The family of this 73-nucleotide RNA sequence from bacterium HR11 is "tRNA".
RNA sequence: GGGCGAUUAGCUCAGAUGGUAGAGCGCUGGUUUCACGAACCAGAGGUCAGAGGUUCGAGUCCUCUAUCGCCCA
Numbered sequence: 001g002g003g004c005g006a007u008u009a010g011c012u013c014a015g016a017u018g019g020u021a022g023a024g025c026g027c028u029g030g031u032u033u034c035a036c037g038a039a040c041c042a043g044a045g046g047u048c049a050g051a052g053g054u055u056c057g058a059g060u061c062c063u064c065u066a067u068c069g070c071c072c073a
Stems, first nucleotide, its partner, number of pairs: 001072007010025004027043005049065005
Dot-bracket structure: (((((((..((((........)))).(((((.......))))).....(((((.......)))))))))))).